[Rfam]
Rfam assigns this 51-nucleotide RNA sequence from Roseibium alexandrii to the family "ffh sRNA".
The family's consensus secondary structure is taken from published work.
It is annotated as a small RNA.
NCBI's taxonomy places the organism under Bacteria, Alphaproteobacteria, Stappiaceae, Roseibium, Roseibium alexandrii.
A reference for the family is Meyer et al. (2009), "Identification of candidate structured RNAs in the marine organism 'Candidatus Pelagibacter ubique'", BMC Genomics.
The sequence is in the family's curated seed alignment.
RNA sequence: UUCCCGGAGGUUCACAUCCGACAGCGCGAUGCGCCCUCGGGUGUCAAACUG
Numbered sequence: 001u002u003c004c005c006g007g008a009g010g011u012u013c014a015c016a017u018c019c020g021a022c023a024g025c026g027c028g029a030u031g032c033g034c035c036c037u038c039g040g041g042u043g044u045c046a047a048a049c050u051g
Stems, first nucleotide, its partner, number of pairs: 015043007024034004